[Rfam]
RNA: SucA RNA motif
RNA sequence: UCGCAAUCCGCUUGCCCGGUGUAGCCGGGGUCGCGGAAGGUUGAUCAACCCAUCGGAGCCUUGGAAACCAGGGCGAAAGGUGAGCG
Numbered sequence: 001u002c003g004c005a006a007u008c009c010g011c012u013u014g015c016c017c018g019g020u021g022u023a024g025c026c027g028g029g030g031u032c033g034c035g036g037a038a039g040g041u042u043g044a045u046c047a048a049c050c051c052a053u054c055g056g057a058g059c060c061u062u063g064g065a066a067a068c069c070a071g072g073g074c075g076a077a078a079g080g081u082g083a084g085c086g
Stems, first nucleotide, its partner, number of pairs: 002086003007037005016028001018026003039050004051082004058074007